Background:
The record is a 102-nucleotide RNA from Clostridium senegalense, which matches "azaaromatic riboswitch aptamer (yjdF RNA)" in Rfam. Lineage of the source: Bacteria > Bacillati > Bacillota > Clostridia > Clostridium.
RNA sequence: AUAUAAAGAGAUAAAAACACAGUUUCUGUUGGUAGUCAGAACCUAUAUAUUCUAUAGCAGUAACCUGCCCUCCUGGGGUUGUCCAUUCUCUUGUAAUAAACU
Numbered sequence: 001a002u003a004u005a006a007a008g009a010g011a012u013a014a015a016a017a018c019a020c021a022g023u024u025u026c027u028g029u030u031g032g033u034a035g036u037c038a039g040a041a042c043c044u045a046u047a048u049a050u051u052c053u054a055u056a057g058c059a060g061u062a063a064c065c066u067g068c069c070c071u072c073c074u075g076g077g078g079u080u081g082u083c084c085a086u087u088c089u090c091u092u093g094u095a096a097u098a099a100a101c102u
Base pairs, nucleotide, nucleotide: 006092007091008090009089010088011087022042023041025040026039027038028037043057044056045055046054047053067079068078069077070076